[Rfam]
The record is a 165-nucleotide RNA from Paenibacillus larvae, which matches "M-box riboswitch aptamer (ykoK leader)" in Rfam. Lineage of the source: Bacteria > Bacilli > Caryophanales > Paenibacillaceae > Paenibacillus larvae subsp. larvae. Rfam describes the family as follows. M-box riboswitch, also know as ykoK leader is described as a metaloregulatory RNA that sense divalent metals and function as a genetic control element of genes related to divalent metal transport in bacteria. It was first reported upstream of the B.subtilis ykoK gene and genes with related functions in other bacteria.

RNA sequence: GCUAGUCUCCGUUAGGUGAGGCUCCUGUAUAGAGAAAUGCUACUGCCCAAAAAUGUCGAGAGACGCCAAUGGGUCAACAGGAAUGGUCGAAAAGAAGGCCCCUCUUAAUGUAGCUGGUUUUAAACCUAUGCUGUACAGUGCUAAAACUCAACGAAGGAGAGGUUA
Numbered sequence: 001g002c003u004a005g006u007c008u009c010c011g012u013u014a015g016g017u018g019a020g021g022c023u024c025c026u027g028u029a030u031a032g033a034g035a036a037a038u039g040c041u042a043c044u045g046c047c048c049a050a051a052a053a054u055g056u057c058g059a060g061a062g063a064c065g066c067c068a069a070u071g072g073g074u075c076a077a078c079a080g081g082a083a084u085g086g087u088c089g090a091a092a093a094g095a096a097g098g099c100c101c102c103u104c105u106u107a108a109u110g111u112a113g114c115u116g117g118u119u120u121u122a123a124a125c126c127u128a129u130g131c132u133g134u135a136c137a138g139u140g141c142u143a144a145a146a147c148u149c150a151a152c153g154a155a156g157g158a159g160a161g162g163u164u165a
Stems, first nucleotide, its partner, number of pairs: 006160005011152002013096001015148003020142003025138008039114005045074005054065004080105003086099003116126003